[Rfam]
RNA sequence: GCAGGACGAUGACCUAUGAAUUGACAGCCAGUGUUGUAUGGCGCCUGCCUGUCAGUUCUAUAGGCCACAGGCCUGC
Numbered sequence: 001g002c003a004g005g006a007c008g009a010u011g012a013c014c015u016a017u018g019a020a021u022u023g024a025c026a027g028c029c030a031g032u033g034u035u036g037u038a039u040g041g042c043g044c045c046u047g048c049c050u051g052u053c054a055g056u057u058c059u060a061u062a063g064g065c066c067a068c069a070g071g072c073c074u075g076c
Base pairs, nucleotide, nucleotide: 001076002075003074004073005072007070010067011066013064014063015062016061018058019057020056021055022054023053024052025051026050027049029047030046031045
Annotation
Rfam assigns this 76-nucleotide RNA sequence from Lepisosteus oculatus to the family "mir-192/215 microRNA precursor family". A reference for the family is Lagos-Quintana et al. (2003), "New microRNAs from mouse and human", RNA. This family represents the human microRNA (miRNA) precursors mir-192 and mir-215. Animal miRNAs are transcribed as ~70nt precursors and subsequently processed by the Dicer enzyme to give a ~22nt product. In this case the mature sequence comes from the 5' arm of the precursor. The extents of the hairpin precursors are not generally known and are estimated based on hairpin prediction. It scores 76 bits against the family's covariance model. Pairs were carried over by alignment from the consensus structure, which was predicted with PFOLD.